[Rfam]
Description: Shown here is an 80-nucleotide RNA from Leptotrombidium deliense, a member of the family "Small nucleolar RNA Me28S-Gm3255". It is annotated as a C/D-box small nucleolar RNA. A search with the family's covariance model found it, with a score of 48 bits. Rfam links the family to the GO terms RNA processing and nucleolus.
RNA sequence: AAUGACCUGAUGAAUGCAUUGAGUUUCUGACACCUCUUAUGAAUCUUUGUGAUUCUAUUUAUGCUAUGCUAACUGAAAAG
Numbered sequence: 001a002a003u004g005a006c007c008u009g010a011u012g013a014a015u016g017c018a019u020u021g022a023g024u025u026u027c028u029g030a031c032a033c034c035u036c037u038u039a040u041g042a043a044u045c046u047u048u049g050u051g052a053u054u055c056u057a058u059u060u061a062u063g064c065u066a067u068g069c070u071a072a073c074u075g076a077a078a079a080g
Stems, first nucleotide, its partner, number of pairs: 003078001039050004
NCBI's taxonomy places the organism under Eukaryota, Metazoa, Trombiculoidea, Trombiculidae, Leptotrombidium. For this family Rfam cites "Genome-wide analyses of two families of snoRNA genes from Drosophila melanogaster, demonstrating the extensive utilization of introns for coding of snoRNAs" (Huang et al., RNA, 2005). Its Rfam clan is "SNORD60 clan".